Shown here is a 135-nucleotide RNA sequence from Acrocephalus arundinaceus, a member of the family "Small nucleolar RNA SNORA61". Rfam 15.1 lists 881 matches to the family in 421 species. ACA61 is a member of the H/ACA class of snoRNA that guide the sites of modification of uridines to pseudouridines. Taxonomically the source falls in Acrocephalus (Eukaryota, Deuterostomia, Amniota, Acrocephalinae). Pairs were carried over by alignment from the consensus structure, which was predicted with PFOLD. Gene Ontology terms of the family: RNA processing and nucleolus.
RNA sequence: UCCCUCCAAAUCCCUUUCCCAUCAGAUCUGAAUACCGAUCUUGUGGUCAAAAAAGGAGGAAGAGUAAAAUUCAUGGUGGUCUUGGGCUCUCUGCAGGUGUGUCCUAUGCUGAGAGGGGCCACUAGGAAGACAGGC
Number, nucleotide and partner (000 for none) at each position: 001u000002c000003c059004c058005u057006c056007c055008a000009a000010a000011u000012c000013c000014c000015u000016u000017u000018c000019c046020c045021a044022u000023c043024a000025g040026a039027u038028c037029u000030g000031a000032a000033u000034a000035c000036c000037g028038a027039u026040c025041u000042u000043g023044u021045g020046g019047u000048c000049a000050a000051a000052a000053a000054a000055g007056g006057a005058g004059g003060a000061a000062g000063a000064g000065u000066a000067a000068a000069a000070u000071u000072c000073a000074u000075g000076g122077u121078g120079g119080u118081c117082u116083u000084g000085g000086g000087c000088u000089c000090u000091c000092u000093g000094c000095a000096g000097g000098u000099g000100u000101g000102u000103c000104c000105u000106a000107u000108g000109c000110u000111g000112a000113g000114a000115g000116g082117g081118g080119c079120c078121a077122c076123u000124a000125g000126g000127a000128a000129g000130a000131c000132a000133g000134g000135c000